[Rfam]
RNA sequence: UACUUAUCAAGAGUGACUGAGGGAUCUGGCCCGAAGAAGUCCAGCAACCUGCUAAAGAAAGCAAGGUGCUAAAUCCUACAAAGUGGAUGGCCAUUUUGAAAGAUAAGGU
Numbered sequence: 001u002a003c004u005u006a007u008c009a010a011g012a013g014u015g016a017c018u019g020a021g022g023g024a025u026c027u028g029g030c031c032c033g034a035a036g037a038a039g040u041c042c043a044g045c046a047a048c049c050u051g052c053u054a055a056a057g058a059a060a061g062c063a064a065g066g067u068g069c070u071a072a073a074u075c076c077u078a079c080a081a082a083g084u085g086g087a088u089g090g091c092c093a094u095u096u097u098g099a100a101a102g103a104u105a106a107g108g109u
Stems, first nucleotide, its partner, number of pairs: 003107006013042001015041003021032003028076002043070004048066002050063004074101001079098006
Dot-bracket structure: ..((((((....(.(((...(((....[[)))......))))((((.((((((......)))).))))))...(]]..((((((........))))))..)))))))..
The family of this 109-nucleotide RNA sequence from Bacillus sp. B1-b2 is "SAM riboswitch aptamer (S box leader)". Its family is annotated with regulation of gene expression in the Gene Ontology. A search with the family's covariance model found it, with a score of 83 bits.